RNA sequence: UGGGGCUGCUGAAUUAGAGAUUGGCGCCCUGUUUUCUUAUUUAAUUACUGGAGUUCAAAAUGUCUCUAAGUGUUGAAGCUAAAGCUAAAAUCGUUUCUGAGUUCGGUCAUGGUGCU
Numbered sequence: 001u002g003g004g005g006c007u008g009c010u011g012a013a014u015u016a017g018a019g020a021u022u023g024g025c026g027c028c029c030u031g032u033u034u035u036c037u038u039a040u041u042u043a044a045u046u047a048c049u050g051g052a053g054u055u056c057a058a059a060a061u062g063u064c065u066c067u068a069a070g071u072g073u074u075g076a077a078g079c080u081a082a083a084g085c086u087a088a089a090a091u092c093g094u095u096u097c098u099g100a101g102u103u104c105g106g107u108c109a110u111g112g113u114g115c116u
Stems, first nucleotide, its partner, number of pairs: 007026006049068005

This 116-nucleotide sequence from Mangrovibacter sp. MFB070 belongs to the Rfam family "Ribosomal S15 leader". Rfam's curators write: The E. coli Ribosomal S15 gene 5' UTR can form two alternative structures. Pairs were carried over by alignment from the consensus structure, which is taken from published work. For this family Rfam cites "Pseudoknot and translational control in the expression of the S15 ribosomal protein" (Benard et al., Biochimie, 1996). The match comes from Rfam's covariance-model search (104 bits). Its Rfam clan is "Ribosomal Protein S15 Leader clan".